[Rfam]
RNA: Bacterial RNase P class A
RNA sequence: CCAGUCGGCCGGGCAGCCGCGCUUCAUCAAUGCCGAAAGGCGAUGGGGUGAGGAAAGUCCGGGCUCCACGGAAAAACGGUGCCGGAUAACGUCCGGCGGGGGCGACCCCAGGGAAAGUGCCACAGAAAACAGACCGCCCCGCCACCUGUCCGCUUCCCCGGGAGCGGAGAGGCGGCGGGGCAAGGGUGAAAAGGUGGGGUAAGAGCCCACCGCGAACCUGGCAACAGGGACGGCAUGGUAAACCCCACCGGGAGCAAGACCGAAUAGGGAUGACACGCGGCCGCGCAAGCGGCCCAGCCUUUUUUCCGGGGCCGUCAUCCGGGUGGGUUGCGCGAGGCCGUGCGCGAGCACGGUCCCAGAUGAAUGGCUGCCACGUUCCGCGCAAGCGGAGCCAUACAGAACCCGGCUUACAGGCCGACUGGCAAC
Numbered sequence: 001c002c003a004g005u006c007g008g009c010c011g012g013g014c015a016g017c018c019g020c021g022c023u024u025c026a027u028c029a030a031u032g033c034c035g036a037a038a039g040g041c042g043a044u045g046g047g048g049u050g051a052g053g054a055a056a057g058u059c060c061g062g063g064c065u066c067c068a069c070g071g072a073a074a075a076a077c078g079g080u081g082c083c084g085g086a087u088a089a090c091g092u093c094c095g096g097c098g099g100g101g102g103c104g105a106c107c108c109c110a111g112g113g114a115a116a117g118u119g120c121c122a123c124a125g126a127a128a129a130c131a132g133a134c135c136g137c138c139c140c141g142c143c144a145c146c147u148g149u150c151c152g153c154u155u156c157c158c159c160g161g162g163a164g165c166g167g168a169g170a171g172g173c174g175g176c177g178g179g180g181c182a183a184g185g186g187u188g189a190a191a192a193g194g195u196g197g198g199g200u201a202a203g204a205g206c207c208c209a210c211c212g213c214g215a216a217c218c219u220g221g222c223a224a225c226a227g228g229g230a231c232g233g234c235a236u237g238g239u240a241a242a243c244c245c246c247a248c249c250g251g252g253a254g255c256a257a258g259a260c261c262g263a264a265u266a267g268g269g270a271u272g273a274c275a276c277g278c279g280g281c282c283g284c285g286c287a288a289g290c291g292g293c294c295c296a297g298c299c300u301u302u303u304u305u306c307c308g309g310g311g312c313c314g315u316c317a318u319c320c321g322g323g324u325g326g327g328u329u330g331c332g333c334g335a336g337g338c339c340g341u342g343c344g345c346g347a348g349c350a351c352g353g354u355c356c357c358a359g360a361u362g363a364a365u366g367g368c369u370g371c372c373a374c375g376u377u378c379c380g381c382g383c384a385a386g387c388g389g390a391g392c393c394a395u396a397c398a399g400a401a402c403c404c405g406g407c408u409u410a411c412a413g414g415c416c417g418a419c420u421g422g423c424a425a426c
Stems, first nucleotide, its partner, number of pairs: 001422010011411001012372007020050009055409003059406005064254004073305003077250005082096005097111001098109004112245002117243002119239003134185002136181008193211006212234001213232002217228004258329004268320006297312005336355008